[Rfam]
RNA sequence: CUGCGAUGAUGACUUUCUUAGGACACCUUUGGAUGUAACUGUGAAAAGAACUUGUGAUUUCUGAGCAGC
Numbered sequence: 001c002u003g004c005g006a007u008g009a010u011g012a013c014u015u016u017c018u019u020a021g022g023a024c025a026c027c028u029u030u031g032g033a034u035g036u037a038a039c040u041g042u043g044a045a046a047a048g049a050a051c052u053u054g055u056g057a058u059u060u061c062u063g064a065g066c067a068g069c
Base pairs, nucleotide, nucleotide: 001068002067003066004065
Dot-bracket structure: ((((............................................................)))).

Rfam assigns this 69-nucleotide RNA from Sylvia atricapilla to the family "Small nucleolar RNA SNORD58". Pairs were carried over by alignment from the consensus structure, which was predicted with PFOLD. Gene Ontology terms of the family: RNA processing and nucleolus. For this family Rfam cites "Site-specific ribose methylation of preribosomal RNA: a novel function for small nucleolar RNAs" (Kiss-Laszlo et al., Cell, 1996). A search with the family's covariance model found it, with a score of 70 bits. Rfam describes the family as follows. snoRNA U58 is found in introns 1, 3 and 6 of the ribosomal protein RPL17 gene in humans. By type it is a C/D-box small nucleolar RNA. Taxonomically the source falls in Sylvia (Eukaryota, Bilateria, Vertebrata, Sauria).